[Rfam]
RNA sequence: CGACUGUAAUGGUCAUAAGGUUAAGGCGAGUUCACGUUCCCUCAUCCGUCUUUCCAAAUUCUUCAGUCUAACGAUUGGAGGCCACCAAUAGUGCCCAGUCCGAACACCACGGUGACAAUCCACUCGUGUGGGAAACUCACGAUGCUGUGCUUGUCCUAAGCAAUGAAGAUGAUUUCUUGAGGGAGGUUUCACUCUGCAGAGAGCUCUUCACCGUGGGGUGGCGGUGCAGGAUUACAUUCGUUGUGUGGUUUGGAUGGUGGAUGAGGCUUGAGUUUCAACUUUUGCCUUUUU
Numbered sequence: 001c002g003a004c005u006g007u008a009a010u011g012g013u014c015a016u017a018a019g020g021u022u023a024a025g026g027c028g029a030g031u032u033c034a035c036g037u038u039c040c041c042u043c044a045u046c047c048g049u050c051u052u053u054c055c056a057a058a059u060u061c062u063u064c065a066g067u068c069u070a071a072c073g074a075u076u077g078g079a080g081g082c083c084a085c086c087a088a089u090a091g092u093g094c095c096c097a098g099u100c101c102g103a104a105c106a107c108c109a110c111g112g113u114g115a116c117a118a119u120c121c122a123c124u125c126g127u128g129u130g131g132g133a134a135a136c137u138c139a140c141g142a143u144g145c146u147g148u149g150c151u152u153g154u155c156c157u158a159a160g161c162a163a164u165g166a167a168g169a170u171g172a173u174u175u176c177u178u179g180a181g182g183g184a185g186g187u188u189u190c191a192c193u194c195u196g197c198a199g200a201g202a203g204c205u206c207u208u209c210a211c212c213g214u215g216g217g218g219u220g221g222c223g224g225u226g227c228a229g230g231a232u233u234a235c236a237u238u239c240g241u242u243g244u245g246u247g248g249u250u251u252g253g254a255u256g257g258u259g260g261a262u263g264a265g266g267c268u269u270g271a272g273u274u275u276c277a278a279c280u281u282u283u284g285c286c287u288u289u290u291u
Stems, first nucleotide, its partner, number of pairs: 002014003017288005023282001025279001028276003041265010052254003062079007083247003086243004090238004095230002098227002100224003104219002107216006114155001116153003120149001121147002124142005130137002156160001164210006174203005183194003
RNA: Fungal signal recognition particle RNA